The record is an 83-nucleotide RNA from Gallus gallus, which matches "mir-449 microRNA precursor family" in Rfam. On this family, see Linsen et al., BMC Genomics 2010: "Small RNA expression and strain specificity in the rat". The base pairs follow the family's consensus structure, which was predicted with RNAalifold.
RNA sequence: CCUGUGGCUGGAAGGCAGUGUGCUGUUAGCGGCUGCUGUGCUGAAUGGAGCAGUCACUACCACACUGCCACCUGCUGCAGGGA
Numbered sequence: 001c002c003u004g005u006g007g008c009u010g011g012a013a014g015g016c017a018g019u020g021u022g023c024u025g026u027u028a029g030c031g032g033c034u035g036c037u038g039u040g041c042u043g044a045a046u047g048g049a050g051c052a053g054u055c056a057c058u059a060c061c062a063c064a065c066u067g068c069c070a071c072c073u074g075c076u077g078c079a080g081g082g083a
Base pairs, nucleotide, nucleotide: 001081002080003079004078005077006076007075008074010072011071014069015068016067017066018065019064020063021062022061025060026059029057031055032054033053039048